[Rfam]
Nucleotides: 123
Base pairs, nucleotide, nucleotide: 037067038066039065041064042063043062044061072111073110074109075107076106077105078104079103080102082100084098085097
Number, partner (000 for none) and nucleotide at each position: 001000u002000u003000g004000c005000u006000c007000c008000u009000u010000a011000g012000a013000u014000g015000u016000g017000a018000u019000u020000u021000u022000a023000g024000u025000g026000u027000u028000g029000g030000c031000a032000g033000a034000a035000a036000a037067a038066c039065c040000c041064g042063g043062g044061c045000a046000c047000c048000c049000u050000u051000u052000c053000c054000u055000a056000g057000c058000a059000c060000a061044g062043c063042c064041c065039g066038g067037u068000c069000g070000u071000u072111a073110a074109a075107c076106c077105c078104c079103g080102a081000u082100c083000c084098u085097u086000c087000c088000c089000u090000c091000c092000c093000c094000a095000u096000a097085g098084a099000a100082g101000c102080u103079c104078g105077g106076g107075g108000u109074u110073u111072u112000u113000u114000u115000u116000g117000g118000c119000u120000g121000c122000g123000a

This 123-nucleotide sequence from Pseudomonas sp. OIL-1 belongs to the Rfam family "Pseudomon-1/ErsA RNA". About the family: Functions to regulate the AlgC enzyme. Based on this information, the new name ErsA for the RNA was adopted. Negatively regulates major porin oprD expression responsible for uptake of carbapenem antibiotics, by base pairing with oprD 5'UTR (leading to increased bacterial resistance to meropenem).Positively regulates amrZ mRNA and contributes to biofilm formation and motility. The source organism's lineage runs through Bacteria, Pseudomonadati, Pseudomonadota, Gammaproteobacteria and Pseudomonas. On this family, see Ferrara et al., Environ Microbiol 2015: "Post-transcriptional regulation of the virulence-associated enzyme AlgC by the sigma(22) -dependent small RNA ErsA of Pseudomonas aeruginosa". Its family is annotated with response to antibiotic, positive regulation of translation, ncRNA-mediated and mRNA binding in the Gene Ontology. The family's consensus secondary structure is taken from published work.